A member of the RNA family "mir-981 microRNA precursor family" from Clunio marinus, 79 nucleotides long. Rfam links the family to the GO terms RISC complex and miRNA-mediated post-transcriptional gene silencing.

RNA sequence: CAUUGUUGGAUCGGGUUUCGCGGUUAGCGUACUUUUUAACAAUAGUUAAGUUCGUUGUCGACGAAACCUGCAUACAAUU
Numbered sequence: 001c002a003u004u005g006u007u008g009g010a011u012c013g014g015g016u017u018u019c020g021c022g023g024u025u026a027g028c029g030u031a032c033u034u035u036u037u038a039a040c041a042a043u044a045g046u047u048a049a050g051u052u053c054g055u056u057g058u059c060g061a062c063g064a065a066a067c068c069u070g071c072a073u074a075c076a077a078u079u
Base pairs, nucleotide, nucleotide: 002078003077004076005075006074012070013069014068015067016066017065018064019063020062029053031051032050033049
The family has 17 seed sequences and 180 matches in Rfam 15.1. A reference for the family is Ruby et al. (2007), "Evolution, biogenesis, expression, and target predictions of a substantially expanded set of Drosophila microRNAs", Genome Res.